[Rfam]
RNA sequence: UGAUGACUGUUCCUUCCAUCUCCAGAAGUUAUGGUGAUGGAAUUUUAUGUCAUCAAAAAUAAAUUGUCCUUUCAAAAGUUCAAGUGGGUCUCUUCACCCAGACUUGUUGCAAGUUUGACAAGUUUGGUUUUGCUGGCCCAUACAUUU
Numbered sequence: 001u002g003a004u005g006a007c008u009g010u011u012c013c014u015u016c017c018a019u020c021u022c023c024a025g026a027a028g029u030u031a032u033g034g035u036g037a038u039g040g041a042a043u044u045u046u047a048u049g050u051c052a053u054c055a056a057a058a059a060u061a062a063a064u065u066g067u068c069c070u071u072u073c074a075a076a077a078g079u080u081c082a083a084g085u086g087g088g089u090c091u092c093u094u095c096a097c098c099c100a101g102a103c104u105u106g107u108u109g110c111a112a113g114u115u116u117g118a119c120a121a122g123u124u125u126g127g128u129u130u131u132g133c134u135g136g137c138c139c140a141u142a143c144a145u146u147u
Stems, first nucleotide, its partner, number of pairs: 001055007014042005020036001022034002086139005098127012
Rfam assigns this 147-nucleotide RNA from Holothuria leucospilota to the family "Small nucleolar RNA SNORA79". Gene Ontology terms of the family: nucleolus and RNA processing. The family's RNA type in Rfam is H/ACA-box small nucleolar RNA. NCBI's taxonomy places the organism under Eukaryota, Eumetazoa, Aspidochirotida, Holothuriidae, Holothuria.